mir-317 microRNA precursor family: a 109-nucleotide sequence from Dinothrombium tinctorium. Its family is annotated with RISC complex and miRNA-mediated post-transcriptional gene silencing in the Gene Ontology.
[Rfam]
RNA sequence: UGCAACUGUUAACUGGGUACCACUCUGGGUUCACAUUGGUUUAAUAUGGAACUUAAACACCUCUGUAUUUUGUGAACACAGCUGGUGGUAUCUCUGUUAACCUUGCCAU
Dot-bracket structure: ........(.(...(((.((.((((((.(.(((((...................................))))).).)))..))).)).)).)..).)..........